RNA sequence: GGGGCAGCCGCUGUCCCUGUCCUCCAGGAGCUCACUUGGUCCGGCCGUGCGCUCCUCGAGGCCAGAGCCCGUGUCUGC
Numbered sequence: 001g002g003g004g005c006a007g008c009c010g011c012u013g014u015c016c017c018u019g020u021c022c023u024c025c026a027g028g029a030g031c032u033c034a035c036u037u038g039g040u041c042c043g044g045c046c047g048u049g050c051g052c053u054c055c056u057c058g059a060g061g062c063c064a065g066a067g068c069c070c071g072u073g074u075c076u077g078c
Stems, first nucleotide, its partner, number of pairs: 004078004009073003015067001017065003021061001023059002026056003030052002033049003036044003
mir-339 microRNA precursor family: a 78-nucleotide sequence from Bos taurus.